[Rfam]
RNA sequence: AAAAUCCUUCGGGGCAGGGUGGAAUUCCCGACCGGCGGUGUUGGCGGCAAAGCCGCCUCAGCCCGUGACCCGCGCUUGCGGUGGAUCCGGUGAGACUCCGGGGCCGACAGUGACAGUCUGGAUGGGAGAAGGAUGAA
Number, nucleotide and partner (000 for none) at each position: 001a000002a000003a000004a134005u133006c132007c131008u130009u129010c128011g000012g000013g000014g000015c000016a000017g029018g028019g027020u000021g000022g000023a000024a000025u000026u000027c019028c018029c017030g000031a117032c116033c106034g105035g066036c065037g064038g063039u000040g000041u000042u000043g000044g000045c000046g000047g000048c000049a000050a000051a000052g000053c000054c000055g000056c000057c000058u000059c000060a000061g104062c103063c038064c037065g036066u035067g000068a000069c000070c081071c080072g000073c000074g000075c000076u000077u000078g000079c000080g071081g070082u000083g000084g000085a000086u102087c101088c100089g099090g098091u000092g000093a000094g000095a000096c000097u000098c090099c089100g088101g087102g086103g062104c061105c034106g033107a000108c120109a119110g118111u000112g000113a000114c000115a000116g032117u031118c110119u109120g108121g000122a000123u000124g000125g000126g000127a000128g010129a009130a008131g007132g006133a005134u004135g000136a000137a000

Overview
Shown here is a 137-nucleotide sequence from Planifilum fulgidum, a member of the family "FMN riboswitch aptamer (RFN element)". The organism belongs to Planifilum, within Bacteria. Rfam 15.1 lists 6,230 matches to the family in 5,120 species.